[Rfam]
RNA: MIR6288 microRNA precursor family
Organism: Prunus armeniaca
RNA sequence: CCAAAAUCAACCACUUGUCAUUUUUUAAUUGGUUCUUAAUGUGUUAAAAAAUUUAUAAGAAUCAAUUAGAAAAUAACAAGUGGCUAGUUCUGG
Numbered sequence: 001c002c003a004a005a006a007u008c009a010a011c012c013a014c015u016u017g018u019c020a021u022u023u024u025u026u027a028a029u030u031g032g033u034u035c036u037u038a039a040u041g042u043g044u045u046a047a048a049a050a051a052u053u054u055a056u057a058a059g060a061a062u063c064a065a066u067u068a069g070a071a072a073a074u075a076a077c078a079a080g081u082g083g084c085u086a087g088u089u090c091u092g093g
Base pairs, nucleotide, nucleotide: 002092003091005089006088007087009085011083012082013081014080015079016078017077018076020074021073022072023071024070025069026068027067028066029065030064031063032062033061034060035059036058037057038056